[Rfam]
RNA sequence: CCAACGGCUCUUUUAAGAGCCACCCACAUCUAUCUGAAGAGUUUUAU
Dot-bracket structure: .....((((((....))))))..........................